[Rfam]
Shown here is a 122-nucleotide RNA from Oryctolagus cuniculus, a member of the family "Small nucleolar RNA SNORA40". Rfam 15.1 lists 2,550 matches to the family in 517 species.
RNA sequence: UGCACUUGUAUCGGUUCUUGUUUAACCUGCGCAGACUGACACAGGUGCAACGGGUAAACCCUCUUCUGCAACCCAGAACUCAUCGACCACUAUGAGUUUUGAUACAAACAAGCAGGAAUAGG
Numbered sequence: 001u002g003c004a005c006u007u008g009u010a011u012c013g014g015u016u017c018u019u020g021u022u023u024a025a026c027c028u029g030c031g032c033a034g035a036c037u038g039a040c041a042c043a044g045g046u047g048c049a050a051c052g053g054g055u056a057a058a059c060c061c062u063c064u065u066c067u068g069c070a071a072c073c074c075a076g077a078a079c080u081c082a083u084c085g086a087c088c089a090c091u092a093u094g095a096g097u098u099u100u101g102a103u104a105c106a107a108a109c110a111a112g113c114a115g116g117a118a119u120a121g122g
Base pairs, nucleotide, nucleotide: 001049002048003047004046005045006044007043008042009041011039014036015035016034021033026031058119061116062115065112067110068109074101075100076099077098078097079096080095081094082093083092

The snoRNA ACA 40 belongs to the H/ACA family of snoRNAs and guides the pseudouridylation of 28S rRNA subunit at position U4565. NB This family has a high threshold value to exclude a large number of closely related sequences that do not appear to have conserved H and ACA boxes, and may be pseudogenes.
Taxonomically the source falls in Oryctolagus (Eukaryota, Deuterostomia, Sarcopterygii, Amniota).
For this family Rfam cites "Mapping to nucleotide resolution of pseudouridine residues in large subunit ribosomal RNAs from representative eukaryotes, prokaryotes, archaebacteria, mitochondria and chloroplasts" (Ofengand and Bakin, J Mol Biol, 1997).